[Rfam]
RNA sequence: AUCCAAAGUGAUUCCCUUUCCAAGGGGCCUGCUUGUGCCCCUCUCCAGGAAAGUAGCAACUUGGAAUAAAAUCUGGCAUGCCUUAGGUUGUUGGGGAGAGGGGAUGUUUGUUUCCUUUGCUUUGCUUCCUUUGGGUGCCUACACAU
Numbered sequence: 001a002u003c004c005a006a007a008g009u010g011a012u013u014c015c016c017u018u019u020c021c022a023a024g025g026g027g028c029c030u031g032c033u034u035g036u037g038c039c040c041c042u043c044u045c046c047a048g049g050a051a052a053g054u055a056g057c058a059a060c061u062u063g064g065a066a067u068a069a070a071a072u073c074u075g076g077c078a079u080g081c082c083u084u085a086g087g088u089u090g091u092u093g094g095g096g097a098g099a100g101g102g103g104a105u106g107u108u109u110g111u112u113u114c115c116u117u118u119g120c121u122u123u124g125c126u127u128c129c130u131u132u133g134g135g136u137g138c139c140u141a142c143a144c145a146u
Base pairs, nucleotide, nucleotide: 002065003064004063005062006061009058010057019050020049021048023042024041025040026039027038028037076136077135079134086127093115095113096112097111
Shown here is a 146-nucleotide sequence from Gulo gulo, a member of the family "Small nucleolar RNA SNORA67". U67 belongs to the H/ACA class of snoRNAs which are thought to guide the sites of modification of uridines to pseudouridines. Rfam classes the family as an H/ACA-box small nucleolar RNA. Pairs were carried over by alignment from the consensus structure, which was predicted with RNAalifold. The organism belongs to Gulo, within Eukaryota.